[Rfam]
RNA sequence: GGCUGUCCUGAAGGUAUUGAGUUAUCUCAGUUGAUUGUUCACAGUCAGUCACAGAUCAUACUCCUUGUUCUACUCAUUCCUCCCUUCUCACUAUUUGCACUUGACUAGUCUAAA
Numbered sequence: 001g002g003c004u005g006u007c008c009u010g011a012a013g014g015u016a017u018u019g020a021g022u023u024a025u026c027u028c029a030g031u032u033g034a035u036u037g038u039u040c041a042c043a044g045u046c047a048g049u050c051a052c053a054g055a056u057c058a059u060a061c062u063c064c065u066u067g068u069u070c071u072a073c074u075c076a077u078u079c080c081u082c083c084c085u086u087c088u089c090a091c092u093a094u095u096u097g098c099a100c101u102u103g104a105c106u107a108g109u110c111u112a113a114a
Stems, first nucleotide, its partner, number of pairs: 001110005008103001010102002014098002016092001018090004044074001047071002
RNA: Y RNA